Rfam assigns this 47-nucleotide RNA sequence from Geotrypetes seraphini to the family "Histone 3' UTR stem-loop". The family's consensus secondary structure is taken from published work. Taxonomically the source falls in Geotrypetes (Eukaryota, Gnathostomata, Dipnotetrapodomorpha, Gymnophiona). The family's RNA type in Rfam is cis-regulatory element.
[Rfam]
RNA sequence: CCAAAGGCUCUUUUAAGAGCCACCAACUUCCCACCUGAAAGGGGCUU
Numbered sequence: 001c002c003a004a005a006g007g008c009u010c011u012u013u014u015a016a017g018a019g020c021c022a023c024c025a026a027c028u029u030c031c032c033a034c035c036u037g038a039a040a041g042g043g044g045c046u047u
Base pairs, nucleotide, nucleotide: 006021007020008019009018010017011016